[Rfam]
RNA sequence: GAGUUACUUUCUGCAGCGAGGUUAAGCCGAGCGAGGUGGAGCCGGAGCGAAAGCGAGUCCGAACAGGGCGGUUGAGUUGCAGGGAGUAGACCCGAAACCAGGUGAUCUAUCCAUGGCCAGGGUGAAGUCCCGGUAACGCGGGAUGGAGGCCCGAACCGAAGAAGGUUGAAAACUUCUCGGAUGAGCUGUGGAUAGGAGUGAAAGGCUAAUCAAACCUGGAAAUAGCUGGUU
Numbered sequence: 001g002a003g004u005u006a007c008u009u010u011c012u013g014c015a016g017c018g019a020g021g022u023u024a025a026g027c028c029g030a031g032c033g034a035g036g037u038g039g040a041g042c043c044g045g046a047g048c049g050a051a052a053g054c055g056a057g058u059c060c061g062a063a064c065a066g067g068g069c070g071g072u073u074g075a076g077u078u079g080c081a082g083g084g085a086g087u088a089g090a091c092c093c094g095a096a097a098c099c100a101g102g103u104g105a106u107c108u109a110u111c112c113a114u115g116g117c118c119a120g121g122g123u124g125a126a127g128u129c130c131c132g133g134u135a136a137c138g139c140g141g142g143a144u145g146g147a148g149g150c151c152c153g154a155a156c157c158g159a160a161g162a163a164g165g166u167u168g169a170a171a172a173c174u175u176c177u178c179g180g181a182u183g184a185g186c187u188g189u190g191g192a193u194a195g196g197a198g199u200g201a202a203a204g205g206c207u208a209a210u211c212a213a214a215c216c217u218g219g220a221a222a223u224a225g226c227u228g229g230u231u
Base pairs, nucleotide, nucleotide: 005088006087007086008085009084010083011082012081013080014079015078016077017076020043021042022041023040026037027036028035047054048053057069058068059067060066091229092228094226098219099218100217101216102215103214107195108194109193110192111191112190113189114188115187116186117185118183120152121151122150123149127144128143129142130141131140132139156180157179158178160177161176162175163174164173197207198206199205